This 166-nucleotide sequence from Clostridiales bacterium KLE1615 belongs to the Rfam family "Clostridiales-1 RNA". NCBI's taxonomy places the organism under Bacteria, Bacillati, Bacillota, Clostridia, Eubacteriales.
RNA sequence: AUCAUACAGGGGACAAAGAUUAAAAGUGAUUGUGCUUGCACAAAUUGCUUUUGAUCUUCUGGACCCGCCCAAACAUGAGGAUGCAGCGGUUUCUGUAAGAAACCAGCGAAUCCGAAUGUUUGCAGGAUUUCGAGAGCGCGAAGUGCGUAGAAAUCCGUAGUAUGAU
Numbered sequence: 001a002u003c004a005u006a007c008a009g010g011g012g013a014c015a016a017a018g019a020u021u022a023a024a025a026g027u028g029a030u031u032g033u034g035c036u037u038g039c040a041c042a043a044a045u046u047g048c049u050u051u052u053g054a055u056c057u058u059c060u061g062g063a064c065c066c067g068c069c070c071a072a073a074c075a076u077g078a079g080g081a082u083g084c085a086g087c088g089g090u091u092u093c094u095g096u097a098a099g100a101a102a103c104c105a106g107c108g109a110a111u112c113c114g115a116a117u118g119u120u121u122g123c124a125g126g127a128u129u130u131c132g133a134g135a136g137c138g139c140g141a142a143g144u145g146c147g148u149a150g151a152a153a154u155c156c157g158u159a160g161u162a163u164g165a166u
Base pairs, nucleotide, nucleotide: 001166002165003164004163005162006161007160010065011064016058017057019055020054021053022052023051024050025049026048027047028046029045030043031042032041033040034039070122071121072120073119074118075117076116079113080112081111082110086107087106088104089103090102091101092100125156126155127154128153129152130151131150136146137145138144139143